[Rfam]
RNA sequence: UGAAAGCAGGUCCCAAAUGCCUUGGUGGUUUUUCGCCGUAGUGAUACAACAUCGAAGCCAUACGAUAUCACCGGGUGAAAAACUCCCAAGGUCGGGACAUUUUUA
Numbered sequence: 001u002g003a004a005a006g007c008a009g010g011u012c013c014c015a016a017a018u019g020c021c022u023u024g025g026u027g028g029u030u031u032u033u034c035g036c037c038g039u040a041g042u043g044a045u046a047c048a049a050c051a052u053c054g055a056a057g058c059c060a061u062a063c064g065a066u067a068u069c070a071c072c073g074g075g076u077g078a079a080a081a082a083c084u085c086c087c088a089a090g091g092u093c094g095g096g097a098c099a100u101u102u103u104u105a
Stems, first nucleotide, its partner, number of pairs: 019092004024087002027084011039073001041071006
RNA: mir-36 microRNA precursor family